[Rfam]
RNA sequence: CGGAACCUCCGGUCGGGGCGCGUUCCCGGCACGCCCCGGCCACGAAAGGGCUCCGGCACAUGCCGGAGCCCUUUUUCGUGA
Numbered sequence: 001c002g003g004a005a006c007c008u009c010c011g012g013u014c015g016g017g018g019c020g021c022g023u024u025c026c027c028g029g030c031a032c033g034c035c036c037c038g039g040c041c042a043c044g045a046a047a048g049g050g051c052u053c054c055g056g057c058a059c060a061u062g063c064c065g066g067a068g069c070c071c072u073u074u075u076u077c078g079u080g081a
Stems, first nucleotide, its partner, number of pairs: 011041008047072008056063002

Source information: Shown here is an 81-nucleotide RNA sequence from Afipia carboxidovorans, a member of the family "Bradyrhizobiaceae sRNA BjrC68". Rfam classes the family as a small RNA. A search with the family's covariance model found it, with a score of 52 bits.